[Rfam]
RNA: Small nucleolar RNA SNORA63
RNA sequence: AGGCAGGAACUAGUUACAAUAUAGCUGCAAAAAGUGCUAUGUUGUCGUUCCCCCUGCUUAAAUUAAAAUGUUUUUUUACUAUCCCUGUCUGUUAACAUGUGCCAUAGCAGCCAGGGACGCUUGAUCUCAGACAU
Numbered sequence: 001a002g003g004c005a006g007g008a009a010c011u012a013g014u015u016a017c018a019a020u021a022u023a024g025c026u027g028c029a030a031a032a033a034g035u036g037c038u039a040u041g042u043u044g045u046c047g048u049u050c051c052c053c054c055u056g057c058u059u060a061a062a063u064u065a066a067a068a069u070g071u072u073u074u075u076u077u078a079c080u081a082u083c084c085c086u087g088u089c090u091g092u093u094a095a096c097a098u099g100u101g102c103c104a105u106a107g108c109a110g111c112c113a114g115g116g117a118c119g120c121u122u123g124a125u126c127u128c129a130g131a132c133a134u
Stems, first nucleotide, its partner, number of pairs: 003057005016045010084115004089110004